[Rfam]
RNA sequence: AAAAUUAUUUUUGCAAUAUGUUCCUGAAUAUUUAAUAUAAGUAUAUUGGGAACAUUUUGCAUCCAUAGUUUUGUAUC
Numbered sequence: 001a002a003a004a005u006u007a008u009u010u011u012u013g014c015a016a017u018a019u020g021u022u023c024c025u026g027a028a029u030a031u032u033u034a035a036u037a038u039a040a041g042u043a044u045a046u047u048g049g050g051a052a053c054a055u056u057u058u059g060c061a062u063c064c065a066u067a068g069u070u071u072u073g074u075a076u077c
Stems, first nucleotide, its partner, number of pairs: 002071007012061005018055008027047005
RNA: mir-450 microRNA precursor family
Organism: Bos taurus